Notes: Glycine riboswitch aptamer: a 92-nucleotide sequence from Proteiniborus ethanoligenes. This family represents the bacterial glycine riboswitch. A search with the family's covariance model found it, with a score of 58 bits. The pairing is the family consensus, mapped onto this sequence.
RNA sequence: AGAUGGAACUCUGAAGAGUCUGAAUAAUCAGCACCGAAGGAGAAAUGUAUUAUAAUACAGAAACUCUCAGGUUAUAGAACAGAGGAAUAUAA
Numbered sequence: 001a002g003a004u005g006g007a008a009c010u011c012u013g014a015a016g017a018g019u020c021u022g023a024a025u026a027a028u029c030a031g032c033a034c035c036g037a038a039g040g041a042g043a044a045a046u047g048u049a050u051u052a053u054a055a056u057a058c059a060g061a062a063a064c065u066c067u068c069a070g071g072u073u074a075u076a077g078a079a080c081a082g083a084g085g086a087a088u089a090u091a092a
Base pairs, nucleotide, nucleotide: 009084010083011082012081013080020031021030022029023028033072034071035070036068037067040066041065042064046059047058